[Rfam]
RNA sequence: AAUAAAUUGUGGGGGAACUCGUUUGAGUUGAGAAGGUAAAACCUAACCCUUUGAACCUGUCAGUUAAUACUGGUGUAGGGAAGCAAUUUAUUAUCUAAA
Numbered sequence: 001a002a003u004a005a006a007u008u009g010u011g012g013g014g015g016a017a018c019u020c021g022u023u024u025g026a027g028u029u030g031a032g033a034a035g036g037u038a039a040a041a042c043c044u045a046a047c048c049c050u051u052u053g054a055a056c057c058u059g060u061c062a063g064u065u066a067a068u069a070c071u072g073g074u075g076u077a078g079g080g081a082a083g084c085a086a087u088u089u090a091u092u093a094u095c096u097a098a099a
Stems, first nucleotide, its partner, number of pairs: 006087005011050004016044001017028004035043003056079004060073004
Overview:
The record is a 99-nucleotide RNA from Acetivibrio clariflavus, which matches "TPP riboswitch aptamer (THI element)" in Rfam. The source organism's lineage runs through Bacteria, Clostridia, Acetivibrionales, Acetivibrio and Acetivibrio clariflavus. Gene Ontology term of the family: thiamine pyrophosphate binding.